[Rfam]
RNA sequence: UGCAGCCCCGUCAAAUUCAGUCCCUGCCUCCUCCGUGGCGGGGACUCGCCAGCCGCCUGCCACAGCAGCUUCUGUAGUCCGUGAGCCUUGUGUCCCCUCUUGUGGGACCUCAGGGAUAGAAUCACACCACAGACAUUG
Numbered sequence: 001u002g003c004a005g006c007c008c009c010g011u012c013a014a015a016u017u018c019a020g021u022c023c024c025u026g027c028c029u030c031c032u033c034c035g036u037g038g039c040g041g042g043g044a045c046u047c048g049c050c051a052g053c054c055g056c057c058u059g060c061c062a063c064a065g066c067a068g069c070u071u072c073u074g075u076a077g078u079c080c081g082u083g084a085g086c087c088u089u090g091u092g093u094c095c096c097c098u099c100u101u102g103u104g105g106g107a108c109c110u111c112a113g114g115g116a117u118a119g120a121a122u123c124a125c126a127c128c129a130c131a132g133a134c135a136u137u138g
Stems, first nucleotide, its partner, number of pairs: 002060004019046010074130002077127002086115005
RNA: Small nucleolar RNA SNORA5
Organism: Himantopus himantopus